A member of the RNA family "mir-1913 microRNA precursor family" from Homo sapiens, 80 nucleotides long. The family's consensus secondary structure was predicted with RNAalifold. Rfam's curators put it in the seed alignment.
Nucleotides: 080
Stems, first nucleotide, its partner, number of pairs: 001080003005075004013067006020060005027053003035044003
Number, partner (000 for none) and nucleotide at each position: 001080a002079c003078c004000u005075c006074u007073a008072c009000c010000u011000c012000c013067c014066g015065g016064c017063a018062g019000a020060g021059g022058a023057g024056g025000c026000u027053g028052c029051a030000g031000a032000g033000g034000c035044u036043g037042g038000c039000u040000u041000u042037c043036c044035a045000a046000a047000a048000c049000u050000c051029u052028g053027c054000c055000c056024c057023c058022u059021c060020c061000g062018c063017u064016g065015c066014u067013g068000c069000c070000a071000a072008g073007u074006g075005g076000c077000u078003g079002g080001u